[Rfam]
Shown here is a 406-nucleotide RNA from Paenibacillus dendritiformis, a member of the family "Bacterial RNase P class A".
RNA sequence: AAAGUUUGACAGACAAUCGCUGGUGACAUGCGUCACGAGAGGAAAGUCCGGGCUCCAUAGGGCAAGGAUGCUGGAUAACGUCCAGUCAGCGCAAGCUGAAGGAUAGUGCCACAGAAAUGGACCGCCGAUGGCCGUCUUCAUGACGGCACAGGCAAGGGUGGAACCGUGGUGUAAGAGACCACGAGGAACGCUGGUGACUUCGUUCCUGGUAAACCCCAUCUGGAGCAAGACCUAAUGGGACGCACGCCUGUCUUUACAGGCACCUCGGCCCGAGGCGCGUCUGGGUUGGUCGCUUGAGCGGUGCAGCAAUGCACAGCCUAGAUAGAUGAUUGUCGCUUAGUAGUGGAAGGGUUGCCCCCGUGAUACCACGAUGAGUACAGAACCCGGCUUAUGACAAGCUUUCCGA
Numbered sequence: 001a002a003a004g005u006u007u008g009a010c011a012g013a014c015a016a017u018c019g020c021u022g023g024u025g026a027c028a029u030g031c032g033u034c035a036c037g038a039g040a041g042g043a044a045a046g047u048c049c050g051g052g053c054u055c056c057a058u059a060g061g062g063c064a065a066g067g068a069u070g071c072u073g074g075a076u077a078a079c080g081u082c083c084a085g086u087c088a089g090c091g092c093a094a095g096c097u098g099a100a101g102g103a104u105a106g107u108g109c110c111a112c113a114g115a116a117a118u119g120g121a122c123c124g125c126c127g128a129u130g131g132c133c134g135u136c137u138u139c140a141u142g143a144c145g146g147c148a149c150a151g152g153c154a155a156g157g158g159u160g161g162a163a164c165c166g167u168g169g170u171g172u173a174a175g176a177g178a179c180c181a182c183g184a185g186g187a188a189c190g191c192u193g194g195u196g197a198c199u200u201c202g203u204u205c206c207u208g209g210u211a212a213a214c215c216c217c218a219u220c221u222g223g224a225g226c227a228a229g230a231c232c233u234a235a236u237g238g239g240a241c242g243c244a245c246g247c248c249u250g251u252c253u254u255u256a257c258a259g260g261c262a263c264c265u266c267g268g269c270c271c272g273a274g275g276c277g278c279g280u281c282u283g284g285g286u287u288g289g290u291c292g293c294u295u296g297a298g299c300g301g302u303g304c305a306g307c308a309a310u311g312c313a314c315a316g317c318c319u320a321g322a323u324a325g326a327u328g329a330u331u332g333u334c335g336c337u338u339a340g341u342a343g344u345g346g347a348a349g350g351g352u353u354g355c356c357c358c359c360g361u362g363a364u365a366c367c368a369c370g371a372u373g374a375g376u377a378c379a380g381a382a383c384c385c386g387g388c389u390u391a392u393g394a395c396a397a398g399c400u401u402u403c404c405g406a
Stems, first nucleotide, its partner, number of pairs: 001402008010393002012334007020039002023036005044390003048387005053225004060271004066221005071085005086100001087098004101216002106214002108210003122157002124153003129148002132145001165183006185206006193198001229291004238282006263275004298317002301314005